[Rfam]
RNA sequence: GGUGAGGUGGCCGAGUUGGUUAUGGCGUCAGGUUAAGGUUACCUUAACAAGUAGUUAUCCUGAUGGGGCAACCCGCGCGAGUUCGAGUCUCGUCCUCAUCA
Numbered sequence: 001g002g003u004g005a006g007g008u009g010g011c012c013g014a015g016u017u018g019g020u021u022a023u024g025g026c027g028u029c030a031g032g033u034u035a036a037g038g039u040u041a042c043c044u045u046a047a048c049a050a051g052u053a054g055u056u057a058u059c060c061u062g063a064u065g066g067g068g069c070a071a072c073c074c075g076c077g078c079g080a081g082u083u084c085g086a087g088u089c090u091c092g093u094c095c096u097c098a099u100c101a
Stems, first nucleotide, its partner, number of pairs: 001100007010026004028063005077093005
Dot-bracket structure: (((((((..((((.........)))).(((((..........................))))).............(((((.......)))))))))))).
RNA: tRNA
Organism: Microdochium bolleyi